A member of the RNA family "Lysine riboswitch aptamer" from Fervidicola ferrireducens, 191 nucleotides long.
RNA sequence: AGUUGAGGUAGAGGCGCGACACAUCAAGAGUACUCCUGCGGAGGUACGAGAGGCCAAUGAUGCAGGAGGAAAGGGAUUGUCGCCGAAGCACAAUCCGAUUCUCGUAGGGUUGUGCUGGGCCUAUGCCGAAGAGGUAUAGGACUGUCACCAAAAAACUUCCCCGAGUUUUUUGGUGGAGCGCUACUUCAUAA
Numbered sequence: 001a002g003u004u005g006a007g008g009u010a011g012a013g014g015c016g017c018g019a020c021a022c023a024u025c026a027a028g029a030g031u032a033c034u035c036c037u038g039c040g041g042a043g044g045u046a047c048g049a050g051a052g053g054c055c056a057a058u059g060a061u062g063c064a065g066g067a068g069g070a071a072a073g074g075g076a077u078u079g080u081c082g083c084c085g086a087a088g089c090a091c092a093a094u095c096c097g098a099u100u101c102u103c104g105u106a107g108g109g110u111u112g113u114g115c116u117g118g119g120c121c122u123a124u125g126c127c128g129a130a131g132a133g134g135u136a137u138a139g140g141a142c143u144g145u146c147a148c149c150a151a152a153a154a155a156c157u158u159c160c161c162c163g164a165g166u167u168u169u170u171u172g173g174u175g176g177a178g179c180g181c182u183a184c185u186u187c188a189u190a191a
Base pairs, nucleotide, nucleotide: 006186007185008184009183010182011181016083017082018081019080020079021078023077024076025075033068034067035066036065037064038063039062040061087116088115089114090113091112092111093110094109095108096107098105117143118142120140121139122138123137124136125135126134127133145176146175147174148173149172150171151170152169153168154167155166156165